[Rfam]
RNA: Ribosomal protein L20 leader
Organism: Paenibacillus thalictri
RNA sequence: GAUUACAAGUAGAGGCGCCCGCUUCUCACCUGUCCGACUUUAAGUUGGCUGGUUUCUUGAGCACAAGAUCAACAUGAAGAUUCGUCAUUGCGAUGAAUAACAAAUGUGGGCGUACUUACGCUCACAUUUUUUUGUGCCC
Numbered sequence: 001g002a003u004u005a006c007a008a009g010u011a012g013a014g015g016c017g018c019c020c021g022c023u024u025c026u027c028a029c030c031u032g033u034c035c036g037a038c039u040u041u042a043a044g045u046u047g048g049c050u051g052g053u054u055u056c057u058u059g060a061g062c063a064c065a066a067g068a069u070c071a072a073c074a075u076g077a078a079g080a081u082u083c084g085u086c087a088u089u090g091c092g093a094u095g096a097a098u099a100a101c102a103a104a105u106g107u108g109g110g111c112g113u114a115c116u117u118a119c120g121c122u123c124a125c126a127u128u129u130u131u132u133u134g135u136g137c138c139c
Base pairs, nucleotide, nucleotide: 011026012025013024014023015022016021028053029052030051034048035047036046037045038044105126106125107124108123109122110121111120112119113118